[Rfam]
RNA sequence: AAAUACCAACCGCACACUCAGGCUCCUGCACGCCGCUUACGCCCACCUGACGACUGCUCGCAACGUUUGUUGGCC
Dot-bracket structure: ...(.(.....).)......(((........)))............(((((((.............)))))))..
Notes:
The family of this 75-nucleotide RNA sequence from Xanthomonas oryzae is "Xanthomonas sRNA sX9". The match comes from Rfam's covariance-model search (47 bits). The family has 16 seed sequences and 309 matches in Rfam 15.1. The family's RNA type in Rfam is small RNA. The organism belongs to Xanthomonas oryzae pv. oryzae, within Bacteria. For this family Rfam cites "Genome-wide transcriptome analysis of the plant pathogen Xanthomonas identifies sRNAs with putative virulence functions" (Schmidtke et al., Nucleic Acids Res, 2011).